[Rfam]
RNA sequence: CGCAUGGGGACUGCGAUCACCCCACGAGGCCCCGGCCGAAGCAUCGCGUCCACUCAUCCAUUCAUGGAGAGGACGCGUCAUG
Numbered sequence: 001c002g003c004a005u006g007g008g009g010a011c012u013g014c015g016a017u018c019a020c021c022c023c024a025c026g027a028g029g030c031c032c033c034g035g036c037c038g039a040a041g042c043a044u045c046g047c048g049u050c051c052a053c054u055c056a057u058c059c060a061u062u063c064a065u066g067g068a069g070a071g072g073a074c075g076c077g078u079c080a081u082g
Stems, first nucleotide, its partner, number of pairs: 005024005046076006
The record is an 82-nucleotide sequence, which matches "chrB-a RNA" in Rfam.
By type it is a cis-regulatory element.